[Rfam]
RNA sequence: AUACUUACCUGAAUGAGGUUAAUGGGAGAUUAAUAAGAUUCAUGGCCUAGGAUUUUGACAUCCAUUUCACUUUGGAGUGGUGCCUACCUAAAGUGGGCCCAAGUGGUCGACCCUAUUUCACAAUUUGUUUUCAGUGGAGGCCUCCUUUCACGCAGCCCCUAC
Numbered sequence: 001a002u003a004c005u006u007a008c009c010u011g012a013a014u015g016a017g018g019u020u021a022a023u024g025g026g027a028g029a030u031u032a033a034u035a036a037g038a039u040u041c042a043u044g045g046c047c048u049a050g051g052a053u054u055u056u057g058a059c060a061u062c063c064a065u066u067u068c069a070c071u072u073u074g075g076a077g078u079g080g081u082g083c084c085u086a087c088c089u090a091a092a093g094u095g096g097g098c099c100c101a102a103g104u105g106g107u108c109g110a111c112c113c114u115a116u117u118u119c120a121c122a123a124u125u126u127g128u129u130u131u132c133a134g135u136g137g138a139g140g141c142c143u144c145c146u147u148u149c150a151c152g153c154a155g156c157c158c159c160u161a162c
Stems, first nucleotide, its partner, number of pairs: 013118001015116001016048006023042004049089003053086001056082002059079003062075002091114001093112001094110001096108001098106002135161003139157001143154001145152001
RNA: U1 spliceosomal RNA